The record is a 104-nucleotide sequence from Antricoccus suffuscus, which matches "mraW RNA" in Rfam. Taxonomically the source falls in Antricoccus (Bacteria, Bacillati, Actinomycetota, Antricoccaceae). By type it is a cis-regulatory element.
RNA sequence: CACGACCCGUCCGCUGCGGCCUCCCCCCGCUAUCCACCCUGGCACUACUUCCCCGGCGCCAGGUCGGAUAUCGGGAGGGGACCGGAACGGACGGAUCGCCCCAG
Numbered sequence: 001c002a003c004g005a006c007c008c009g010u011c012c013g014c015u016g017c018g019g020c021c022u023c024c025c026c027c028c029g030c031u032a033u034c035c036a037c038c039c040u041g042g043c044a045c046u047a048c049u050u051c052c053c054c055g056g057c058g059c060c061a062g063g064u065c066g067g068a069u070a071u072c073g074g075g076a077g078g079g080g081a082c083c084g085g086a087a088c089g090g091a092c093g094g095a096u097c098g099c100c101c102c103a104g
Stems, first nucleotide, its partner, number of pairs: 010091004015086001018083002021080004026075004031070005038063006045056001
The base pairs follow the family's consensus structure, which is taken from published work.